[Rfam]
RNA sequence: CCGUAAUAACAACAAAAGUCAUGAGAACAAUUAUAGUAAAUACAUAUUGGUGGUGGCGCUCUUUACAACUCAUAAGGUCGUAAGGAACCAGUCCUCAUGUAUAUACUAUCAUGAUAUAAUAAAAGGUCUGUC
Numbered sequence: 001c002c003g004u005a006a007u008a009a010c011a012a013c014a015a016a017a018g019u020c021a022u023g024a025g026a027a028c029a030a031u032u033a034u035a036g037u038a039a040a041u042a043c044a045u046a047u048u049g050g051u052g053g054u055g056g057c058g059c060u061c062u063u064u065a066c067a068a069c070u071c072a073u074a075a076g077g078u079c080g081u082a083a084g085g086a087a088c089c090a091g092u093c094c095u096c097a098u099g100u101a102u103a104u105a106c107u108a109u110c111a112u113g114a115u116a117u118a119a120u121a122a123a124a125g126g127u128c129u130g131u132c
Stems, first nucleotide, its partner, number of pairs: 036106003040102006049095002052092001058088001060086003066080001068078003
A member of the RNA family "Bacteroidete tryptophan peptide leader RNA" from Parabacteroides merdae, 132 nucleotides long. It is annotated as a cis-regulatory leader. Gene Ontology terms of the family: S-adenosylmethionine metabolic process and regulation of gene expression. Taxonomically the source falls in Parabacteroides merdae (Bacteria, Bacteroidales, Tannerellaceae, Parabacteroides).